This 67-nucleotide RNA from Oceanicola sp. MCTG156(1a) belongs to the Rfam family "L2-Alphaproteobacteria ribosomal protein leader".
[Rfam]
RNA sequence: AGGGACCUUCGGGGCCCUUCACACAUAGGGUCGAAAGCGACCCGUAUAGCUAAACGGAAGAGAGCAA
Numbered sequence: 001a002g003g004g005a006c007c008u009u010c011g012g013g014g015c016c017c018u019u020c021a022c023a024c025a026u027a028g029g030g031u032c033g034a035a036a037g038c039g040a041c042c043c044g045u046a047u048a049g050c051u052a053a054a055c056g057g058a059a060g061a062g063a064g065c066a067a
Stems, first nucleotide, its partner, number of pairs: 001018004006014003028043006
It is one of the family's seed sequences. The base pairs follow the family's consensus structure, which is taken from published work.